[Rfam]
RNA sequence: GCAUGGUAAUGGAUUUUACCACAGAGCAGGCACUUCUCUGUGGGCCUCUCAUAGUGUACCCAUGCCAGAGUAAACUACAGCCUCGAACCAUGGCCCAGCCUCCUUAACCCAUGGGCUGUGAGCACUGAAGGGGGUUGCAUAGUG
Numbered sequence: 001g002c003a004u005g006g007u008a009a010u011g012g013a014u015u016u017u018a019c020c021a022c023a024g025a026g027c028a029g030g031c032a033c034u035u036c037u038c039u040g041u042g043g044g045c046c047u048c049u050c051a052u053a054g055u056g057u058a059c060c061c062a063u064g065c066c067a068g069a070g071u072a073a074a075c076u077a078c079a080g081c082c083u084c085g086a087a088c089c090a091u092g093g094c095c096c097a098g099c100c101u102c103c104u105u106a107a108c109c110c111a112u113g114g115g116c117u118g119u120g121a122g123c124a125c126u127g128a129a130g131g132g133g134g135u136u137g138c139a140u141a142g143u144g
Stems, first nucleotide, its partner, number of pairs: 001065004005060004015054002018052001021049001028047003031043001078137006089127002094122001096118006
Dot-bracket structure: ((((((((......((.(..(......((((...........).))).)..)))..)))).))))............((((((.....((...(.((((((...........))))))...)...))....)))))).......